[Rfam]
RNA sequence: CAAAUCCUGAAGUGUUCGUUAUAUACAUUUCAGUUUUGACCUAACAACCAAUCGUAAGGGAGUUUUACAUCUCCGUGUGGAUGACAAGCCUUUCGAGGACGUCAAAUGCAUGGAUGCGAACACCCACCUGCUAUAUGCGGGCUCAAAACGAUUUCGUAAAAAACGGCACAGUCGGGAUUUGU
Number, nucleotide and partner (000 for none) at each position: 001c000002a180003a179004a178005u177006c176007c175008u174009g173010a172011a000012g169013u168014g167015u166016u000017c165018g164019u163020u000021a000022u000023a000024u000025a000026c000027a000028u000029u000030u000031c000032a000033g149034u148035u147036u000037u145038g144039a143040c141041c140042u000043a000044a000045c000046a000047a000048c000049c000050a000051a000052u000053c000054g000055u000056a000057a000058g125059g124060g123061a000062g121063u120064u119065u118066u000067a000068c000069a115070u000071c000072u114073c113074c112075g111076u110077g109078u108079g000080g000081a000082u000083g000084a102085c101086a000087a000088g000089c098090c097091u000092u000093u000094c000095g000096a000097g090098g089099a000100c000101g085102u084103c000104a000105a000106a000107u000108g078109c077110a076111u075112g074113g073114a072115u069116g000117c000118g065119a064120a063121c062122a000123c060124c059125c058126a000127c000128c000129u000130g000131c000132u000133a000134u000135a000136u000137g000138c000139g000140g041141g040142c000143u039144c038145a037146a000147a035148a034149c033150g000151a000152u000153u000154u000155c000156g000157u000158a000159a000160a000161a000162a000163a019164c018165g017166g015167c014168a013169c012170a000171g000172u010173c009174g008175g007176g006177a005178u004179u003180u002181g000182u000
This 182-nucleotide RNA sequence from Planococcaceae bacterium Storch 2/2-2 belongs to the Rfam family "6S / SsrS RNA". Rfam classes the family as a non-coding RNA gene. Rfam's curators write: E. coli 6S RNA was the first non coding RNA to be sequenced, but its function was unknown until recently. It consists of 184 nucleotides that fold into an extended hairpin structure with a large single-stranded internal bulge. The 6S RNA specifically associates with RNA polymerase holoenzyme containing the sigma70 specificity factor. This interaction represses expression from a sigma70-dependent promoter during stationary phase. 6S RNA homologs have recently been identified in most bacterial genomes. NCBI's taxonomy places the organism under Bacteria, Bacillota, Bacilli, Caryophanales, Caryophanaceae. On this family, see Elkina et al., RNA Biol 2017: "6S RNA in Rhodobacter sphaeroides: 6S RNA and pRNA transcript levels peak in late exponential phase and gene deletion causes a high salt stress phenotype".